[Rfam]
RNA sequence: AAAUAAGGGCGCACGGUGAAUGCCUUGGCACUAGGAGCCGAAGAAGGACGGGACGAACACCGAAAUGCUUUGGGGAGCUGUAAGUAAGCAAUGAUCCAGAGAUAUCCGAAUGGGGGAACCCACUAUCCGUAAUGGGAUAGUAUCCAUUAGUGAAUACAUAGCUAAUGAGAAGGUAGACGCAGGGAACUGAAACAUCUCAUUACCUGCAGGAAGAGAAAGAAAAAUCGAUUUCCUGAGUAGCGGCGAGCGAAACGGAAGGAGCCCAAACCAGUCAGCAUGCUGAUUGGGGUUGUAGGACUACGAUGUGAGAGUGAGUUUUAUAGACGAAUGGCGUGGGAACGUCAGCCAAAGAGAGUGAAAGCCUCGUAGUCGAAAUGGAAUGAGCCUCUAGUAGCAUCCUGAGUACGGCGGGACACGAGGAAUCCCGUUGGAAUCCGCCAGGACCAUCUGGCAAGGCUAAAUACUCCCUAGUGACCGAUAGUGAACAAGUACCGUGAGGGAAAGGUGAAAAGCACCCCGGGAGGGGAGUGAAAGAGAACCUGAAACCGUGUGCUUACAAG
Number, nucleotide and partner (000 for none) at each position: 001a000002a000003a000004u000005a000006a000007g555008g554009g553010c552011g551012c550013a549014c548015g547016g546017u000018g000019a000020a000021u000022g540023c505024c504025u000026u000027g476028g475029c473030a472031c471032u470033a469034g468035g467036a465037g464038c173039c172040g000041a000042a000043g000044a000045a000046g107047g106048a105049c062050g061051g060052g000053a000054c000055g000056a000057a000058c000059a000060c051061c050062g049063a000064a000065a000066u000067g000068c101069u100070u099071u098072g097073g096074g095075g000076a000077g089078c088079u087080g000081u000082a000083a000084g000085u000086a000087a079088g078089c077090a000091a000092u000093g000094a000095u074096c073097c072098a071099g070100a069101g068102a000103u000104a000105u048106c047107c046108g000109a000110a000111u000112g121113g120114g119115g000116g000117a000118a000119c114120c113121c112122a141123c140124u139125a138126u137127c136128c135129g000130u000131a000132a000133u000134g000135g128136g127137a126138u125139a124140g123141u122142a000143u170144c169145c167146a166147u165148u164149a163150g162151u161152g000153a000154a000155u000156a000157c000158a000159u000160a000161g151162c150163u149164a148165a147166u146167g145168a000169g144170a143171a000172g039173g038174u000175a000176g000177a000178c209179g207180c206181a205182g204183g203184g000185a000186a000187c000188u000189g196190a195191a000192a000193c000194a000195u190196c189197u000198c000199a000200u000201u000202a000203c183204c182205u181206g180207c179208a000209g178210g000211a000212a000213g000214a000215g000216a000217a000218a000219g226220a225221a000222a000223a000224a000225u220226c219227g000228a000229u461230u257231u256232c255233c254234u000235g000236a000237g000238u000239a000240g248241c247242g000243g000244c000245g000246a000247g241248c240249g000250a000251a000252a000253c000254g233255g232256a231257a230258g000259g000260a458261g457262c456263c455264c000265a000266a000267a000268c287269c286270a285271g284272u283273c282274a281275g000276c000277a000278u000279g000280c000281u274282g273283a272284u271285u270286g269287g268288g000289g000290u000291u000292g000293u000294a400295g399296g398297a000298c394299u393300a392301c391302g000303a000304u000305g000306u000307g000308a000309g387310a000311g385312u384313g000314a000315g381316u380317u379318u378319u377320a376321u375322a000323g371324a370325c369326g000327a000328a000329u344330g343331g342332c341333g340334u000335g000336g000337g000338a000339a000340c333341g332342u331343c330344a329345g000346c000347c351348a000349a000350a000351g347352a000353g365354a364355g363356u000357g000358a000359a000360a000361g000362c000363c355364u354365c353366g000367u000368a000369g325370u324371c323372g000373a000374a000375a321376u320377g319378g318379a317380a316381u315382g000383a000384g312385c311386c000387u309388c000389u000390a000391g301392u300393a299394g298395c000396a000397u000398c296399c295400u294401g000402a000403g000404u000405a000406c430407g429408g428409c427410g426411g425412g424413a423414c000415a000416c000417g000418a000419g000420g000421a000422a000423u413424c412425c411426c410427g409428u408429u407430g406431g000432a000433a000434u000435c000436c000437g452438c451439c450440a449441g448442g000443a000444c000445c000446a000447u000448c441449u440450g439451g438452c437453a000454a000455g263456g262457c261458u260459a000460a000461a229462u000463a000464c037465u036466c000467c035468c034469u033470a032471g031472u030473g029474a000475c028476c027477g000478a000479u000480a000481g000482u000483g000484a000485a000486c000487a000488a000489g000490u000491a000492c499493c498494g000495u000496g000497a000498g493499g492500g000501a000502a000503a000504g024505g023506u000507g000508a000509a000510a000511a000512g000513c000514a000515c526516c525517c524518c523519g000520g000521g000522a000523g518524g517525g516526g515527a000528g000529u000530g000531a000532a000533a000534g000535a000536g000537a000538a000539c000540c022541u000542g000543a000544a000545a000546c016547c015548g014549u013550g012551u011552g010553c009554u008555u007556a000557c000558a000559a000560g000
The family of this 560-nucleotide part of an RNA from Granulicatella sp. zg-ZJ is "Bacterial large subunit ribosomal RNA". The organism belongs to Granulicatella, within Bacteria. The match comes from Rfam's covariance-model search (2889 bits). The base pairs follow the family's consensus structure, which is taken from published work.